The record is an 84-nucleotide RNA sequence from Aquarana catesbeiana, which matches "mir-130 microRNA precursor family" in Rfam. Lineage of the source: Eukaryota > Dipnotetrapodomorpha > Tetrapoda > Amphibia > Aquarana. Gene Ontology terms of the family: RISC complex and miRNA-mediated post-transcriptional gene silencing.

RNA sequence: UCCUGUCCAGCGCCCUUUUUAUGUUGUACUACUAGUGGCAACACACAUAAAGCAGUGCAAUGUUAAAAGGGCAUUGGCCUGUGA
Number, nucleotide and partner (000 for none) at each position: 001u084002c083003c000004u000005g079006u000007c077008c076009a075010g074011c000012g072013c071014c070015c069016u068017u067018u066019u065020u000021a000022u062023g061024u060025u059026g058027u057028a056029c055030u054031a000032c000033u000034a000035g000036u000037g000038g000039c000040a000041a000042c000043a000044c000045a000046c000047a000048u000049a000050a000051a000052g000053c000054a030055g029056u028057g027058c026059a025060a024061u023062g022063u000064u000065a019066a018067a017068a016069g015070g014071g013072c012073a000074u010075u009076g008077g007078c000079c005080u000081g000082u000083g002084a001